Background
UnaL2 LINE 3' element: a 51-nucleotide sequence from Coregonus sp. 'balchen'.

[Rfam]
RNA sequence: UGCACUCACUGUAAGCCGCUCUGGAUAAGAGCGUCUGCUAAAUGACUAAAA
Numbered sequence: 001u002g003c004a005c006u007c008a009c010u011g012u013a014a015g016c017c018g019c020u021c022u023g024g025a026u027a028a029g030a031g032c033g034u035c036u037g038c039u040a041a042a043u044g045a046c047u048a049a050a051a
Stems, first nucleotide, its partner, number of pairs: 010040001011038003017033006
Overview:
By type it is a cis-regulatory element. About the family: The eel long interspersed element (LINE) UnaL2 and its partner short interspersed element (SINE) share a conserved 3' tail containing a stem-loop that is critical for their retrotransposition.